[Rfam]
The record is a 101-nucleotide sequence from Paenibacillus lutrae, which matches "Purine riboswitch aptamer" in Rfam. Gene Ontology term of the family: purine nucleobase biosynthetic process. Pairs were carried over by alignment from the consensus structure, which is taken from published work.
RNA sequence: CAGUCAAUUAAAUAGCCAGCUCGUAUAAAGGCGGGAAUAGGCCCGCCAGUCUCUACCUGAUCACCGUAAAUGAUCAGACUACGAGUGAUUGAGAAAUUCGC
Numbered sequence: 001c002a003g004u005c006a007a008u009u010a011a012a013u014a015g016c017c018a019g020c021u022c023g024u025a026u027a028a029a030g031g032c033g034g035g036a037a038u039a040g041g042c043c044c045g046c047c048a049g050u051c052u053c054u055a056c057c058u059g060a061u062c063a064c065c066g067u068a069a070a071u072g073a074u075c076a077g078a079c080u081a082c083g084a085g086u087g088a089u090u091g092a093g094a095a096a097u098u099c100g101c
Stems, first nucleotide, its partner, number of pairs: 019086007030047006057077007